The record is an 85-nucleotide sequence from Bacteroides ovatus, which matches "Bacteroides-1 RNA" in Rfam. Rfam's curators put it in the seed alignment.

RNA sequence: GUGCAAAUCGCCUGAUAAAGCUUCUUGUGUGUAUGCGAAUAUAGAUAAGUCAAGCAAGGUAUGCCUCCCCGGCAUGACAGGAAGA
Numbered sequence: 001g002u003g004c005a006a007a008u009c010g011c012c013u014g015a016u017a018a019a020g021c022u023u024c025u026u027g028u029g030u031g032u033a034u035g036c037g038a039a040u041a042u043a044g045a046u047a048a049g050u051c052a053a054g055c056a057a058g059g060u061a062u063g064c065c066u067c068c069c070c071g072g073c074a075u076g077a078c079a080g081g082a083a084g085a
Base pairs, nucleotide, nucleotide: 020055021054022053025048026047027046028045031042032041033040034039060076061075062074063073064072065071